Rfam assigns this 225-nucleotide RNA from Atopomonas hussainii to the family "PhrS". The organism belongs to Atopomonas, within Bacteria. Its family is annotated with quorum sensing in the Gene Ontology. It scores 86 bits against the family's covariance model.
RNA sequence: AUCGCAAAGCAAGCAGGCAGACAUCCUAAGGAGCGAGCCAUGUUUAUUGAUGAAGUGGUUUUAGCCGGUGUGAUCACCGUUGGCCUGAUGAUCGGUUUUCUCGGGGCUGUGGGGUAUUUCGUGUGGAAGGAUGCGCAGGGUAAGCGUAAGUCUUAACCGGCGUUUUGGAAGCACAGGUACACCCACGCAAGGUUUGGCGGGCUCAUGGAAGCCCGCCUUUUUUCG
Numbered sequence: 001a002u003c004g005c006a007a008a009g010c011a012a013g014c015a016g017g018c019a020g021a022c023a024u025c026c027u028a029a030g031g032a033g034c035g036a037g038c039c040a041u042g043u044u045u046a047u048u049g050a051u052g053a054a055g056u057g058g059u060u061u062u063a064g065c066c067g068g069u070g071u072g073a074u075c076a077c078c079g080u081u082g083g084c085c086u087g088a089u090g091a092u093c094g095g096u097u098u099u100c101u102c103g104g105g106g107c108u109g110u111g112g113g114g115u116a117u118u119u120c121g122u123g124u125g126g127a128a129g130g131a132u133g134c135g136c137a138g139g140g141u142a143a144g145c146g147u148a149a150g151u152c153u154u155a156a157c158c159g160g161c162g163u164u165u166u167g168g169a170a171g172c173a174c175a176g177g178u179a180c181a182c183c184c185a186c187g188c189a190a191g192g193u194u195u196g197g198c199g200g201g202c203u204c205a206u207g208g209a210a211g212c213c214c215g216c217c218u219u220u221u222u223u224c225g
Base pairs, nucleotide, nucleotide: 002106003105005103055065056064082093083092085090186191197216198215199214200213201212202211203210